The record is a 316-nucleotide sequence from a Methanobacteriaceae archaeon, which matches "Archaeal signal recognition particle RNA" in Rfam. The family is grouped with related families in Rfam's "SRP clan". Rfam links the family to the GO terms SRP-dependent cotranslational protein targeting to membrane, signal sequence recognition and signal recognition particle, plasma membrane targeting. It is annotated as a non-coding RNA gene.
[Rfam]
RNA sequence: AAAUAGGCUAGGUUGGGAGGUUAGUGGUCUCUUGUAAAUACAAAUCCUCUAUAUGGUAUAAUCGAAGUUCAUUGGGAGGCAUAUUGCGUGUCUAUAAACCUAAUAACAUAAUGUCGAAGUUCCGUCCCGCAGGAUUGGUCGUAGUAGAGUUUUAACUGUAGGGUUAAAGUAAACUAUUUUAACUAAUUGAAUGGGUCAGGUCUGGAAAGAAGCAGCUCUGUUUUGGAGAGCCAAUGCUUGUGGAUCAACGGGGUGGAGUUAUGGAGUUAGAUCAUUUAUUUUCAUAAUGUAUGUCCACCUUUGAAUGUGCCUGUUA
Numbered sequence: 001a002a003a004u005a006g007g008c009u010a011g012g013u014u015g016g017g018a019g020g021u022u023a024g025u026g027g028u029c030u031c032u033u034g035u036a037a038a039u040a041c042a043a044a045u046c047c048u049c050u051a052u053a054u055g056g057u058a059u060a061a062u063c064g065a066a067g068u069u070c071a072u073u074g075g076g077a078g079g080c081a082u083a084u085u086g087c088g089u090g091u092c093u094a095u096a097a098a099c100c101u102a103a104u105a106a107c108a109u110a111a112u113g114u115c116g117a118a119g120u121u122c123c124g125u126c127c128c129g130c131a132g133g134a135u136u137g138g139u140c141g142u143a144g145u146a147g148a149g150u151u152u153u154a155a156c157u158g159u160a161g162g163g164u165u166a167a168a169g170u171a172a173a174c175u176a177u178u179u180u181a182a183c184u185a186a187u188u189g190a191a192u193g194g195g196u197c198a199g200g201u202c203u204g205g206a207a208a209g210a211a212g213c214a215g216c217u218c219u220g221u222u223u224u225g226g227a228g229a230g231c232c233a234a235u236g237c238u239u240g241u242g243g244a245u246c247a248a249c250g251g252g253g254u255g256g257a258g259u260u261a262u263g264g265a266g267u268u269a270g271a272u273c274a275u276u277u278a279u280u281u282u283c284a285u286a287a288u289g290u291a292u293g294u295c296c297a298c299c300u301u302u303g304a305a306u307g308u309g310c311c312u313g314u315u316a
Base pairs, nucleotide, nucleotide: 002315003314004313005312006311007310008309011063012062013061014060015033016032017031018030019029020028021027038059039058040057041056043054067306068305069304070303071302074299075298078295079294080293081292088285089284090283094279095278096277097276098275100270101269102268103267104266107263108262109261110260111259112258114256119254120253121252122251123250124249125248127243128242129241130240131239132238133237134235135234136233137232138231139229140228141180143178144177145176146175147174149170150169151168152167153166154165155164156163157162183226184225185224186223193218194217195216196215201210202209203208
Dot-bracket structure: .(((((((..(((((((((((.....)))))))....((((.(..........).))))))))...(((((..((..((((......(((...(((((.(((((..((((((.(....(((((((.(((((((((((((((.(((((.(((((((((....)))))))))...))))).)..((((......((((....(((....)))....))))....)))).)).))))).)))))))....))))))).).))))))..)))))....)))))...)))......))))..))..)))))..))))))).